This 90-nucleotide RNA from Nothobranchius furzeri belongs to the Rfam family "mir-204 microRNA precursor family". The literature on the family includes a 2008 paper in Genome Res by Murchison et al., "Conservation of small RNA pathways in platypus". The source organism's lineage runs through Eukaryota, Craniata, Actinopterygii, Osteoglossocephalai and Nothobranchius. Rfam 15.1 lists 1,730 matches to the family in 644 species. Its family is annotated with miRNA-mediated post-transcriptional gene silencing and RISC complex in the Gene Ontology. The match comes from Rfam's covariance-model search (91 bits). The base pairs follow the family's consensus structure, which was predicted with RNAalifold.
RNA sequence: AUGUGACUUGUAGACUUCCCUUUGUCAUCCUAUGCCUGGAGUCAUGUAAAAGAGGCUGGGAAGGCAAAGGGAUGCCCACUUGUCAUACAA
Numbered sequence: 001a002u003g004u005g006a007c008u009u010g011u012a013g014a015c016u017u018c019c020c021u022u023u024g025u026c027a028u029c030c031u032a033u034g035c036c037u038g039g040a041g042u043c044a045u046g047u048a049a050a051a052g053a054g055g056c057u058g059g060g061a062a063g064g065c066a067a068a069g070g071g072a073u074g075c076c077c078a079c080u081u082g083u084c085a086u087a088c089a090a
Stems, first nucleotide, its partner, number of pairs: 017072006024065002028061005034056004